[Rfam]
This 84-nucleotide RNA from Streptomyces nodosus belongs to the Rfam family "nrdJ RNA". The family's consensus secondary structure is taken from published work. A search with the family's covariance model found it, with a score of 71 bits. The family's RNA type in Rfam is small RNA. Lineage of the source: Bacteria > Bacillati > Kitasatosporales > Streptomycetaceae > Streptomyces.
Nucleotides: 084
Stems, first nucleotide, its partner, number of pairs: 005035012051073005057067001
Number, partner (000 for none) and nucleotide at each position: 001000a002000c003000c004000c005035g006034u007033c008032a009031c010030g011029c012028g013027u014026g015025c016024u017000c018000u019000c020000g021000a022000a023000c024016g025015g026014u027013a028012c029011g030010c031009g032008u033007g034006g035005c036000a037000g038000u039000a040000g041000a042000c043000a044000g045000a046000a047000c048000a049000c050000c051073g052072u053071g054070c055069c056000a057067u058000g059000g060000g061000a062000a063000g064000a065000a066000a067057a068000g069055g070054g071053c072052a073051c074000u075000u076000c077000g078000g079000g080000g081000c082000g083000u084000u